[Rfam]
RNA sequence: AGAGCAGGGAUUGUGUGUAUCGGAGUUGUGCUUGAAUCAGUGCACCUGUUGCCGAAAGAGUUCCCUGCCAUAUCGAUUUGAGGAAGAUGGACAGUUGUGUUUCAUCCUGUCCAUUGAUUAUUCAUCAAUCAUCUUCCCCACAUCC
Numbered sequence: 001a002g003a004g005c006a007g008g009g010a011u012u013g014u015g016u017g018u019a020u021c022g023g024a025g026u027u028g029u030g031c032u033u034g035a036a037u038c039a040g041u042g043c044a045c046c047u048g049u050u051g052c053c054g055a056a057a058g059a060g061u062u063c064c065c066u067g068c069c070a071u072a073u074c075g076a077u078u079u080g081a082g083g084a085a086g087a088u089g090g091a092c093a094g095u096u097g098u099g100u101u102u103c104a105u106c107c108u109g110u111c112c113a114u115u116g117a118u119u120a121u122u123c124a125u126c127a128a129u130c131a132u133c134u135u136c137c138c139c140a141c142a143u144c145c
Stems, first nucleotide, its partner, number of pairs: 004068007015045006080139001082137009094126001096124002

This 145-nucleotide RNA from Tetracentron sinense belongs to the Rfam family "small nucleolar RNA snoR135". The family's RNA type in Rfam is H/ACA-box small nucleolar RNA. The match comes from Rfam's covariance-model search (127 bits). Rfam links the family to the GO terms nucleolus and RNA processing.